The family of this 417-nucleotide sequence from Alistipes sp. CAG:268 is "Bacterial RNase P class A".
Ribonuclease P (RNase P) is a ubiquitous endoribonuclease, found in archaea, bacteria and eukarya as well as chloroplasts and mitochondria.
Rfam links the family to the GO terms tRNA processing, ribonuclease P activity and dimeric ribonuclease P complex.
The match comes from Rfam's covariance-model search (216 bits).
Pairs were carried over by alignment from the consensus structure, which is taken from published work.
The family's RNA type in Rfam is ribozyme.
RNA sequence: GCGCAGGUCCGCUCUGUCGCCGCCGGCGCAAGCCGGGGGAGGAAAGUCCGGGCAACACAGAGCGCCACGCAAGCUAACGACUUGACAGCCGUGAGGUUGUGGGAGCGUAACAGAGAAUGACCGCCCGCCGGCGGAAGAUUCGGGACACGACGGGAUCCGUGCGAUGCCGCAGGUCUCCGGCUCCGAACGGCGGGUAAGGGUGAAAAGGCGGGGUAAGAGCCCACCGCGGAGGCAGCAAUGUCAUCCGGCCGUACGUCCCGUGGGUUGCAAGACCGUGUAUACCGGCAAUCAAGGAUGGCUCGUCCGAUGUCGGGGGGUAGGUUGCUUGAGGCGGCAGGUGACUGCCGUCGUAGAUAAAUGACAGAGACCCGGAGUCCGCUCCGGGGACAGAACCCGGCUUACAGGGCCUGCAAAGCA
Numbered sequence: 001g002c003g004c005a006g007g008u009c010c011g012c013u014c015u016g017u018c019g020c021c022g023c024c025g026g027c028g029c030a031a032g033c034c035g036g037g038g039g040a041g042g043a044a045a046g047u048c049c050g051g052g053c054a055a056c057a058c059a060g061a062g063c064g065c066c067a068c069g070c071a072a073g074c075u076a077a078c079g080a081c082u083u084g085a086c087a088g089c090c091g092u093g094a095g096g097u098u099g100u101g102g103g104a105g106c107g108u109a110a111c112a113g114a115g116a117a118u119g120a121c122c123g124c125c126c127g128c129c130g131g132c133g134g135a136a137g138a139u140u141c142g143g144g145a146c147a148c149g150a151c152g153g154g155a156u157c158c159g160u161g162c163g164a165u166g167c168c169g170c171a172g173g174u175c176u177c178c179g180g181c182u183c184c185g186a187a188c189g190g191c192g193g194g195u196a197a198g199g200g201u202g203a204a205a206a207g208g209c210g211g212g213g214u215a216a217g218a219g220c221c222c223a224c225c226g227c228g229g230a231g232g233c234a235g236c237a238a239u240g241u242c243a244u245c246c247g248g249c250c251g252u253a254c255g256u257c258c259c260g261u262g263g264g265u266u267g268c269a270a271g272a273c274c275g276u277g278u279a280u281a282c283c284g285g286c287a288a289u290c291a292a293g294g295a296u297g298g299c300u301c302g303u304c305c306g307a308u309g310u311c312g313g314g315g316g317g318u319a320g321g322u323u324g325c326u327u328g329a330g331g332c333g334g335c336a337g338g339u340g341a342c343u344g345c346c347g348u349c350g351u352a353g354a355u356a357a358a359u360g361a362c363a364g365a366g367a368c369c370c371g372g373a374g375u376c377c378g379c380u381c382c383g384g385g386g387a388c389a390g391a392a393c394c395c396g397g398c399u400u401a402c403a404g405g406g407c408c409u410g411c412a413a414a415g416c417a
Base pairs, nucleotide, nucleotide: 003411004410005409006408007407008406009405010404011402012366013365014364015363016362017361018360020039021038023036024035025034026033027032044400045399046398048397049396050395051394052393053267054266055265056264060301061300062299063298065263066262067261068260069259070084071083072082073081085100087098088097089096090095101258102257105256106255107254108253109252121199122198123195124194125193126192127191128190129189130188207225208224210222211221212220226249227247228246229245230244232241233240234239271323272322273321274320282313283312284311285310286309293305294304295303296302330349331348332347333346334345335344336343337342